[Rfam]
RNA: Bacillaceae-1 RNA
Organism: Paenisporosarcina sp. HGH0030
RNA sequence: UUGUUAGGAAGGAAGGCUAAGAGCCCGACAUCGUGUCGGAACGCCUUCAUGAUCAACAUCCGAUUGA
Number, nucleotide and partner (000 for none) at each position: 001u000002u000003g000004u000005u000006a000007g000008g000009a000010a000011g000012g048013a047014a046015g045016g044017c043018u000019a000020a000021g000022a000023g000024c000025c039026c038027g037028a036029c035030a000031u000032c000033g000034u000035g029036u028037c027038g026039g025040a000041a000042c000043g017044c016045c015046u014047u013048c012049a000050u000051g000052a000053u067054c066055a065056a064057c000058a000059u000060c000061c000062g000063a000064u056065u055066g054067a053